[Rfam]
RNA: Small nucleolar RNA SNORA17
RNA sequence: UGCCACUGGCGUUGCAGAGAUGACUACUGUGGCAUCUUUGUGUCAAAAACGUGGCAAGAGAGACCCAGGCUAUGUUCUACGCUCGUUUGUUCUGCACCCCGUGAGCAAUCCGAGUGAUUGAUAGCCUGACAUC
Numbered sequence: 001u002g003c004c005a006c007u008g009g010c011g012u013u014g015c016a017g018a019g020a021u022g023a024c025u026a027c028u029g030u031g032g033c034a035u036c037u038u039u040g041u042g043u044c045a046a047a048a049a050c051g052u053g054g055c056a057a058g059a060g061a062g063a064c065c066c067a068g069g070c071u072a073u074g075u076u077c078u079a080c081g082c083u084c085g086u087u088u089g090u091u092c093u094g095c096a097c098c099c100c101g102u103g104a105g106c107a108a109u110c111c112g113a114g115u116g117a118u119u120g121a122u123a124g125c126c127u128g129a130c131a132u133c
Base pairs, nucleotide, nucleotide: 001056002055003054004053008044009043010042014041015040016039017038019036020035021034022033024031066128067127068126069125070124071123072122073121080116081115083113084112085111088107089106090105091104092103